The family of this 227-nucleotide sequence from Cytobacillus kochii is "T-box leader". Lineage of the source: Bacteria > Bacillota > Caryophanales > Bacillaceae > Cytobacillus. It is annotated as a cis-regulatory leader. The family has 48 seed sequences and 19,395 matches in Rfam 15.1.
RNA sequence: UAUAAAGCAAUGAAGAGAAACUAGUAAACCUUAUUUCCCUAGUAAAGAGAGUCAGCGGUUGGUGUGAGCUGAACUAUAAAUAAGAUGAAUUUCAUUCUUGGAGCUUUUUCUUUGCUGUCAUGUUCGGCCGAAGACAGUAAGGACGGUUAUCAAUACCGUUAUGAAUUCGAGUGGAAAGUCGCAAGCUUUCAAAAAGGGUGGUACCGCGUGAGUCACACGUCCCUUUA
Numbered sequence: 001u002a003u004a005a006a007g008c009a010a011u012g013a014a015g016a017g018a019a020a021c022u023a024g025u026a027a028a029c030c031u032u033a034u035u036u037c038c039c040u041a042g043u044a045a046a047g048a049g050a051g052u053c054a055g056c057g058g059u060u061g062g063u064g065u066g067a068g069c070u071g072a073a074c075u076a077u078a079a080a081u082a083a084g085a086u087g088a089a090u091u092u093c094a095u096u097c098u099u100g101g102a103g104c105u106u107u108u109u110c111u112u113u114g115c116u117g118u119c120a121u122g123u124u125c126g127g128c129c130g131a132a133g134a135c136a137g138u139a140a141g142g143a144c145g146g147u148u149a150u151c152a153a154u155a156c157c158g159u160u161a162u163g164a165a166u167u168c169g170a171g172u173g174g175a176a177a178g179u180c181g182c183a184a185g186c187u188u189u190c191a192a193a194a195a196g197g198g199u200g201g202u203a204c205c206g207c208g209u210g211a212g213u214c215a216c217a218c219g220u221c222c223c224u225u226u227a
Base pairs, nucleotide, nucleotide: 007104008103015099016098017097018096027086029084031083032082040076041075042074052072053071054070055069056068110142111141112140113139114138115137116136117135118134119133144158145157146156174190175189176188177187178186179185195224196223197222198221206220207219208218209217210216